[Rfam]
RNA sequence: UGGGCUAGACCGGAGGGUUAGGGGUCCUCUGUAAGCGCAAAUCCCCUAUACGGCGCGGUCGAAGUUCAGGGGACGGCUGAUCGACUGUUUAUCGGCCCUGCUGAUUGGUGUCGAAGCCUCGUCCCGCAGGAUCAGUGGUGAUGGGGCCCUGACUGGAGGGUCAGGGUAAACCAUCUUAGUCAUGGGAACGGGUCAGGCCUGGAAAGGAGCAGCCCUACCAUGGACAGCUGAUGCUUGCGGAUUAACGGGGUGGAGCCAGUCAGCGGGAUCACCGGUAAAUGGAAGGUCUGUCAACCCCUGAACGUGCCCA
Dot-bracket structure: (((((..(((((((((((.....)))))))....((((..............))))))))...(((((((((..(((.(.(...(((((((((((.(((((((((((((.(....(((((((.(((((((((((((((.(((((.(((((((((....)))))))))...))))).)..((((((....((((....(((....)))....))))..)))))).)).))))).)))))))....))))))).).)))))))))))))....)))))))))))..).)..)))..)))))))))..)))))
Numbered sequence: 001u002g003g004g005c006u007a008g009a010c011c012g013g014a015g016g017g018u019u020a021g022g023g024g025u026c027c028u029c030u031g032u033a034a035g036c037g038c039a040a041a042u043c044c045c046c047u048a049u050a051c052g053g054c055g056c057g058g059u060c061g062a063a064g065u066u067c068a069g070g071g072g073a074c075g076g077c078u079g080a081u082c083g084a085c086u087g088u089u090u091a092u093c094g095g096c097c098c099u100g101c102u103g104a105u106u107g108g109u110g111u112c113g114a115a116g117c118c119u120c121g122u123c124c125c126g127c128a129g130g131a132u133c134a135g136u137g138g139u140g141a142u143g144g145g146g147c148c149c150u151g152a153c154u155g156g157a158g159g160g161u162c163a164g165g166g167u168a169a170a171c172c173a174u175c176u177u178a179g180u181c182a183u184g185g186g187a188a189c190g191g192g193u194c195a196g197g198c199c200u201g202g203a204a205a206g207g208a209g210c211a212g213c214c215c216u217a218c219c220a221u222g223g224a225c226a227g228c229u230g231a232u233g234c235u236u237g238c239g240g241a242u243u244a245a246c247g248g249g250g251u252g253g254a255g256c257c258a259g260u261c262a263g264c265g266g267g268a269u270c271a272c273c274g275g276u277a278a279a280u281g282g283a284a285g286g287u288c289u290g291u292c293a294a295c296c297c298c299u300g301a302a303c304g305u306g307c308c309c310a
Stems, first nucleotide, its partner, number of pairs: 001310005008060004012030007035056004064303009075292003079287001081285001085282011097267013111253001116251007124240007131232005136226002138177001140175005146167009180223006190215004198207003